RNA sequence: AGCGCAUGCCCUCCUGGGCGUUUCCUCCCUCACUUGCGGGCGGGGCUCCGGCCCCGCCCGUCCUUUCCCCGACC
Dot-bracket structure: .......((((....))))..................(((((((((....)))))))))...............
Overview
The record is a 74-nucleotide RNA from Hansschlegelia zhihuaiae, which matches "Makes More Granules Regulator RNA (mmgR)" in Rfam. Taxonomically the source falls in Hansschlegelia (Bacteria, Pseudomonadota, Alphaproteobacteria, Hyphomicrobiales). The match comes from Rfam's covariance-model search (47 bits). Pairs were carried over by alignment from the consensus structure. The family has 87 seed sequences and 1,791 matches in Rfam 15.1. Clan: suhB sRNA clan.